[Rfam]
RNA sequence: AUUUCCUGGGCAUCUUGUUAAAAUGCAGAUUCUAAUUCUCUAGGUCUGAGGAGAGGCCUGACAGUCUGCAUUUCUAACAAGUUCCCAGGUGAUGCUGA
Numbered sequence: 001a002u003u004u005c006c007u008g009g010g011c012a013u014c015u016u017g018u019u020a021a022a023a024u025g026c027a028g029a030u031u032c033u034a035a036u037u038c039u040c041u042a043g044g045u046c047u048g049a050g051g052a053g054a055g056g057c058c059u060g061a062c063a064g065u066c067u068g069c070a071u072u073u074c075u076a077a078c079a080a081g082u083u084c085c086c087a088g089g090u091g092a093u094g095c096u097g098a
Stems, first nucleotide, its partner, number of pairs: 003091001005089001009085002014081007021073003025069005031063001033061001
RNA: mir-544 microRNA precursor family
Organism: Capra hircus